[Rfam]
RNA sequence: CCUAAUUGGUCCUGUAAGUCACUCUGGAUAAGAGUGUCUGCUAAAUGAUGUAAA
Numbered sequence: 001c002c003u004a005a006u007u008g009g010u011c012c013u014g015u016a017a018g019u020c021a022c023u024c025u026g027g028a029u030a031a032g033a034g035u036g037u038c039u040g041c042u043a044a045a046u047g048a049u050g051u052a053a054a
Stems, first nucleotide, its partner, number of pairs: 013043001014041003020036006